Eukaryotic large subunit ribosomal RNA: a 409-nucleotide part of an RNA from Erpetoichthys calabaricus. Pairs were carried over by alignment from the consensus structure, which is taken from published work.
Nucleotides: 409
Stems, first nucleotide, its partner, number of pairs: 007160005013154002017149003022052001024050005053108004061101003068095003072091001073088006110144003117137005169302005175296001306407003310403001312326001315323001332399005338392003342385002349379004354375001357372005
Number, partner (000 for none) and nucleotide at each position: 001000g002000a003000u004000g005000g006000u007160g008159u009158u010157g011156u012000c013154g014153c015000a016000a017149u018148a019147g020000c021000a022052a023000u024050c025049c026048u027047g028046c029000u030000c031000a032000g033000u034000a035000c036000g037000a038000g039000a040000g041000g042000a043000a044000c045000c046028g047027c048026a049025g050024g051000u052022u053108c054107a055106g056105a057000c058000a059000u060000u061101u062100g063099g064000u065000g066000u067000a068095u069094g070093u071000g072091c073088u074087u075086g076085g077084c078083u079000g080000a081000g082000g083078a084077g085076c086075c087074a088073a089000u090000g091072g092000g093070g094069c095068g096000a097000a098000g099063c100062u101061a102000c103000c104000a105056u106055c107054u108053g109000u110144g111143g112142g113000a114000u115000u116000a117137u118136g119135a120134c121133u122000g123000a124000a125000c126000g127000c128000c129000u130000c131000u132000a133121a134120g135119u136118c137117a138000g139000a140000a141000u142112c143111c144110c145000g146000c147019c148018u149017a150000g151000a152000c153014g154013u155000a156011a157010c158009g159008a160007u161000a162000c163000c164000g165000u166000a167000g168000c169302g170301c171300c172299g173298c174000a175296u176000c177000g178000c179000u180000u181000c182000g183000g184000u185000c186000g187000g188000a189000c190000u191000c192000c193000g194000a195000u196000a197000c198000c199000c200000g201000a202000c203000u204000c205000c206000g207000g208000u209000c210000g211000g212000c213000g214000a215000g216000g217000a218000g219000c220000g221000c222000c223000u224000u225000c226000c227000g228000u229000g230000a231000c232000u233000g234000g235000g236000c237000u238000g239000g240000g241000g242000c243000g244000u245000g246000g247000c248000c249000g250000g251000a252000c253000g254000a255000u256000g257000g258000u259000c260000a261000c262000c263000c264000c265000u266000c267000u268000c269000c270000u271000a272000u273000c274000g275000c276000g277000c278000a279000c280000a281000g282000c283000a284000u285000g286000u287000u288000c289000g290000u291000g292000g293000a294000g295000a296175a297000c298173g299172u300171g301170g302169u303000g304000c305000u306407a307406a308405a309000u310403g311000a312326c313000c314000u315323g316000c317000a318000g319000a320000c321000g322000a323315c324000c325000u326312g327000a328000u329000u330000c331000u332399g333398g334397g335396u336395c337000a338392g339391g340390g341000u342385u343384u344000c345000g346000u347000a348000c349379g350378u351377g352376g353000c354375a355000g356000a357372g358371c359370a360369g361368c362000u363000c364000c365000c366000u367000c368361g369360c370359u371358g372357c373000g374000a375354u376352c377351c378350a379349u380000u381000g382000a383000g384343a385342g386000u387000c388000a389000g390340c391339c392338c393000u394000c395336g396335a397334u398333c399332c400000a401000a402000c403310c404000u405308u406307u407306u408000g409000u